[Rfam]
RNA sequence: CUCCAGUGAUGAACUCUUUUGUGCCACGUGUCUGGGCCACUGAUCUAUAGUGAUGGAAAUGAGGAACUGAGGAG
Numbered sequence: 001c002u003c004c005a006g007u008g009a010u011g012a013a014c015u016c017u018u019u020u021g022u023g024c025c026a027c028g029u030g031u032c033u034g035g036g037c038c039a040c041u042g043a044u045c046u047a048u049a050g051u052g053a054u055g056g057a058a059a060u061g062a063g064g065a066a067c068u069g070a071g072g073a074g
Stems, first nucleotide, its partner, number of pairs: 001074004
Dot-bracket structure: ((((..................................................................))))
This 74-nucleotide RNA sequence from Synaphobranchus kaupii belongs to the Rfam family "Small nucleolar RNA SNORD66". Taxonomically the source falls in Synaphobranchus (Eukaryota, Chordata, Neopterygii, Elopocephala). It scores 85 bits against the family's covariance model. Rfam links the family to the GO terms RNA processing and nucleolus. It is annotated as a C/D-box small nucleolar RNA. Rfam describes the family as follows. snoRNA HBII-142 is part of the C/D family of snoRNAs. It is the human orthologue of the mouse MBII-142 snoRNA and is predicted to guide 2'O-ribose methylation of small 18S rRNA at residue C1272. On this family, see Huttenhofer et al., EMBO J 2001: "RNomics: an experimental approach that identifies 201 candidates for novel, small, non-messenger RNAs in mouse". The family has 20 seed sequences and 1,346 matches in Rfam 15.1.